[Rfam]
RNA: Bacterial RNase P class A
RNA sequence: AAAGCAGGCCGCCUUAUCGCUGCGUUUUUGGACGUGGAGGAAAUUCCGGACACCGUAGGGCAGCAUAGUGGGUAACGCCCACCGUUCGUCCCCCGGACGAAAAGGACUAGUGCAACAGAAAGUAUGUACAGGUAAUGCUGUAGUGAAACCAGGUAAACUCUAUGCGGUGCAAUGCCAUGUAUACCGGCUCUUAAGGACGGCCCGUCCGUUGCCGGAGGGUAGGCAGCUAAAGCUUGCUGGUAACAGUAAGUUCAGAUAAAUGAUAGGGGUCCCGUUUAUUCGGGAAACAGAAUCCGGAUUACAGGCCUGUUUUUAUU
Numbered sequence: 001a002a003a004g005c006a007g008g009c010c011g012c013c014u015u016a017u018c019g020c021u022g023c024g025u026u027u028u029u030g031g032a033c034g035u036g037g038a039g040g041a042a043a044u045u046c047c048g049g050a051c052a053c054c055g056u057a058g059g060g061c062a063g064c065a066u067a068g069u070g071g072g073u074a075a076c077g078c079c080c081a082c083c084g085u086u087c088g089u090c091c092c093c094c095g096g097a098c099g100a101a102a103a104g105g106a107c108u109a110g111u112g113c114a115a116c117a118g119a120a121a122g123u124a125u126g127u128a129c130a131g132g133u134a135a136u137g138c139u140g141u142a143g144u145g146a147a148a149c150c151a152g153g154u155a156a157a158c159u160c161u162a163u164g165c166g167g168u169g170c171a172a173u174g175c176c177a178u179g180u181a182u183a184c185c186g187g188c189u190c191u192u193a194a195g196g197a198c199g200g201c202c203c204g205u206c207c208g209u210u211g212c213c214g215g216a217g218g219g220u221a222g223g224c225a226g227c228u229a230a231a232g233c234u235u236g237c238u239g240g241u242a243a244c245a246g247u248a249a250g251u252u253c254a255g256a257u258a259a260a261u262g263a264u265a266g267g268g269g270u271c272c273c274g275u276u277u278a279u280u281c282g283g284g285a286a287a288c289a290g291a292a293u294c295c296g297g298a299u300u301a302c303a304g305g306c307c308u309g310u311u312u313u314u315a316u317u
Stems, first nucleotide, its partner, number of pairs: 001313010011302001012268007020037007042300003046297005051169004058203004063165005068082005083104001085101006105160002110158002112154002127142005173225004184215005195207004232251008